[Rfam]
RNA sequence: ACCUGUUGCGGGCGGCAGCGUGAGGGAGCCCGCAGCACCAGACAGAACACCGUGUCACGGGAACAUCGUGGCACUUCAGGGCGUU
Numbered sequence: 001a002c003c004u005g006u007u008g009c010g011g012g013c014g015g016c017a018g019c020g021u022g023a024g025g026g027a028g029c030c031c032g033c034a035g036c037a038c039c040a041g042a043c044a045g046a047a048c049a050c051c052g053u054g055u056c057a058c059g060g061g062a063a064c065a066u067c068g069u070g071g072c073a074c075u076u077c078a079g080g081g082c083g084u085u
Stems, first nucleotide, its partner, number of pairs: 004037010052074008